The record is a 489-nucleotide part of an RNA from Thermodesulfatator indicus, which matches "Bacterial small subunit ribosomal RNA" in Rfam. Lineage of the source: Bacteria > Thermodesulfobacteriota > Thermodesulfobacteria > Thermodesulfobacteriales > Thermodesulfatator indicus.
RNA sequence: UGACGGGGGCCCGCACAAGCGGUGGAGCACGUGGUUUAAUUCGAUGCAAAGCGAAGAACCUUACCUGGGUUUGACAUGCUAGGGAACCCCUCAGAGAUGAGGGGGUGCCCGGGCUUUGCCUGGGAGCCCUAGCACAGGUGCUGCAUGGCUGUCGUCAGCUCGUGUCGUGAGAUGUUGGGUUAAGUCCCGCAACGAGCGCAACCCUUGCCCUUAGUUGCCAGCGGGUAGAGCCGGGCACUCUAGGGGGACUGCCGGGGACAACCCGGAGGAAGGGGGGGAUGACGUCAAGUCAUCAUGGCCCUUAUGCCCAGGGCUACACACGUGCUACAAUGGGCGGUACAGAGGGAAGCGAACCCGUAAGGGGGAGCAAAUCCCAGAAAGCCGCUCUCAGUACGGAUCGGGGUCUGCAACUCGACCCCGUGAAGCCGGAAUCGCUAGUAACGGCGGAUCAGCAUGCCGCCGUGAAUACGUUCCCGGGCCUUGUACACA
Dot-bracket structure: (((((.(((((((.((..((((((.((((((((((....((((........))))........(((((((......((.(((((..(((((((....))))))).(.((((((.....)))))).)))))).))..((.((((..((((((.((...(((((((((....)))..((((......))))..)))))).....((((.(((((((...((..(((......)))))....)))))))..((.(((((.....))))).)).....))))....)).).)))...))))))))....)))))))...)).)))))))).)...(((((((.....(((..((...(((....)))...))....))).....)))))))......(....(((((((........)))))))....).....))))).....(((((((.........)))))))......))...)))))))))).))..
Numbered sequence: 001u002g003a004c005g006g007g008g009g010c011c012c013g014c015a016c017a018a019g020c021g022g023u024g025g026a027g028c029a030c031g032u033g034g035u036u037u038a039a040u041u042c043g044a045u046g047c048a049a050a051g052c053g054a055a056g057a058a059c060c061u062u063a064c065c066u067g068g069g070u071u072u073g074a075c076a077u078g079c080u081a082g083g084g085a086a087c088c089c090c091u092c093a094g095a096g097a098u099g100a101g102g103g104g105g106u107g108c109c110c111g112g113g114c115u116u117u118g119c120c121u122g123g124g125a126g127c128c129c130u131a132g133c134a135c136a137g138g139u140g141c142u143g144c145a146u147g148g149c150u151g152u153c154g155u156c157a158g159c160u161c162g163u164g165u166c167g168u169g170a171g172a173u174g175u176u177g178g179g180u181u182a183a184g185u186c187c188c189g190c191a192a193c194g195a196g197c198g199c200a201a202c203c204c205u206u207g208c209c210c211u212u213a214g215u216u217g218c219c220a221g222c223g224g225g226u227a228g229a230g231c232c233g234g235g236c237a238c239u240c241u242a243g244g245g246g247g248a249c250u251g252c253c254g255g256g257g258a259c260a261a262c263c264c265g266g267a268g269g270a271a272g273g274g275g276g277g278g279a280u281g282a283c284g285u286c287a288a289g290u291c292a293u294c295a296u297g298g299c300c301c302u303u304a305u306g307c308c309c310a311g312g313g314c315u316a317c318a319c320a321c322g323u324g325c326u327a328c329a330a331u332g333g334g335c336g337g338u339a340c341a342g343a344g345g346g347a348a349g350c351g352a353a354c355c356c357g358u359a360a361g362g363g364g365g366a367g368c369a370a371a372u373c374c375c376a377g378a379a380a381g382c383c384g385c386u387c388u389c390a391g392u393a394c395g396g397a398u399c400g401g402g403g404u405c406u407g408c409a410a411c412u413c414g415a416c417c418c419c420g421u422g423a424a425g426c427c428g429g430a431a432u433c434g435c436u437a438g439u440a441a442c443g444g445c446g447g448a449u450c451a452g453c454a455u456g457c458c459g460c461c462g463u464g465a466a467u468a469c470g471u472u473c474c475c476g477g478g479c480c481u482u483g484u485a486c487a488c489a
Stems, first nucleotide, its partner, number of pairs: 001487002003484003007481007015471002019435005024328001026326008034317002040055004064312007077134002080131005087104007106126001108124006137301002140299004146295002148290003151286001153284002158197006164173003176189004203278004208246007218235002222233003249269002252266005332387007344375003349368002354363003394425001399420007441463007